[Rfam]
RNA: mir-221 microRNA precursor family
Organism: Phrynocephalus forsythii
RNA sequence: UGGGGCCUGGACCUGGCAUACAAUGUAGAAUUCUGUGUUUAUUAAGCAACAGCUACAUUGUCUGCUGGGUUUCAGGCCUCCUUG
Numbered sequence: 001u002g003g004g005g006c007c008u009g010g011a012c013c014u015g016g017c018a019u020a021c022a023a024u025g026u027a028g029a030a031u032u033c034u035g036u037g038u039u040u041a042u043u044a045a046g047c048a049a050c051a052g053c054u055a056c057a058u059u060g061u062c063u064g065c066u067g068g069g070u071u072u073c074a075g076g077c078c079u080c081c082u083u084g
Base pairs, nucleotide, nucleotide: 013068014067015066016065017064018063020061021060022059023058024057025056026055027054028053033052034051035050036049
Dot-bracket structure: ............((((((.(((((((((....((((............))))))))))))).))))))................